[Rfam]
RNA: Small nucleolar RNA snR4
RNA sequence: AACUAUUACAGUCGAUGAGGAUAGGUUAUAGUUAUGUUUAACAUCUGUGUUCGAGAGAACUCUAGUUAUCCAUUCUGUUCAAAUCUAAGUUCUUAACUUUGAAUUGAAACAAUUGGGUCGAUGUGGAUUGUGCCGUGGCUGUUUCACCACCUUAAUAGCGGUGCUUUUAACUAGUAUAAACUGAGGCUG
Numbered sequence: 001a002a003c004u005a006u007u008a009c010a011g012u013c014g015a016u017g018a019g020g021a022u023a024g025g026u027u028a029u030a031g032u033u034a035u036g037u038u039u040a041a042c043a044u045c046u047g048u049g050u051u052c053g054a055g056a057g058a059a060c061u062c063u064a065g066u067u068a069u070c071c072a073u074u075c076u077g078u079u080c081a082a083a084u085c086u087a088a089g090u091u092c093u094u095a096a097c098u099u100u101g102a103a104u105u106g107a108a109a110c111a112a113u114u115g116g117g118u119c120g121a122u123g124u125g126g127a128u129u130g131u132g133c134c135g136u137g138g139c140u141g142u143u144u145c146a147c148c149a150c151c152u153u154a155a156u157a158g159c160g161g162u163g164c165u166u167u168u169a170a171c172u173a174g175u176a177u178a179a180a181c182u183g184a185g186g187c188u189g
Stems, first nucleotide, its partner, number of pairs: 009189005016146005023140001025139004029130005034124001042123004058067003068118005074112001076106002079103001083099001087094002148163004